The family of this 187-nucleotide RNA sequence from Pseudomonas sp. URIL14HWK12:I9 is "Pseudomonas sRNA P27".
RNA sequence: CGGGUUUACUCCUGGUGUUAACCGUUUCAUCCAGCCGGAGCCGGAUGUCGUUUUGGUGUCUGAUUCGGCAACGAAUCGGGAGCACCAUCUGCGUAGGCUGUAGGUUUAAGGCUUUCGCCGCCUACGGUCUUGGACAGCCCCCGCCAGGCAGGGACCCCAAUCUUGUCGCGACGCGCACACGGCACGC
Numbered sequence: 001c002g003g004g005u006u007u008a009c010u011c012c013u014g015g016u017g018u019u020a021a022c023c024g025u026u027u028c029a030u031c032c033a034g035c036c037g038g039a040g041c042c043g044g045a046u047g048u049c050g051u052u053u054u055g056g057u058g059u060c061u062g063a064u065u066c067g068g069c070a071a072c073g074a075a076u077c078g079g080g081a082g083c084a085c086c087a088u089c090u091g092c093g094u095a096g097g098c099u100g101u102a103g104g105u106u107u108a109a110g111g112c113u114u115u116c117g118c119c120g121c122c123u124a125c126g127g128u129c130u131u132g133g134a135c136a137g138c139c140c141c142c143g144c145c146a147g148g149c150a151g152g153g154a155c156c157c158c159a160a161u162c163u164u165g166u167c168g169c170g171a172c173g174c175g176c177a178c179a180c181g182g183c184a185c186g187c
Stems, first nucleotide, its partner, number of pairs: 002157006011148004023050002028047005034041002054087006060079007091144003096139004104135010173187003
Background
On this family, see Livny et al., Nucleic Acids Res 2006: "Identification of 17 Pseudomonas aeruginosa sRNAs and prediction of sRNA-encoding genes in 10 diverse pathogens using the bioinformatic tool sRNAPredict2". The match comes from Rfam's covariance-model search (189 bits). The family's RNA type in Rfam is small RNA. Pairs were carried over by alignment from the consensus structure, which was predicted with WAR.